[Rfam]
RNA sequence: UUUGCUCACUCUCCCUCAAGGGCUUCUAGCAUUGCCAACAACAAGAAGGCAAGCUUGAGGCCGUUGGGGAGAGUUAACAA
Dot-bracket structure: .....(.((((((((.(((.((((((..............................)))))).))))))))))).)....
Numbered sequence: 001u002u003u004g005c006u007c008a009c010u011c012u013c014c015c016u017c018a019a020g021g022g023c024u025u026c027u028a029g030c031a032u033u034g035c036c037a038a039c040a041a042c043a044a045g046a047a048g049g050c051a052a053g054c055u056u057g058a059g060g061c062c063g064u065u066g067g068g069g070a071g072a073g074u075u076a077a078c079a080a
Stems, first nucleotide, its partner, number of pairs: 006076001008074008017066003021062006
The family of this 80-nucleotide sequence from Castanea mollissima is "MIR473 microRNA precursor family". Its family is annotated with miRNA-mediated post-transcriptional gene silencing and RISC complex in the Gene Ontology. The match comes from Rfam's covariance-model search (64 bits). Pairs were carried over by alignment from the consensus structure, which was predicted with WAR.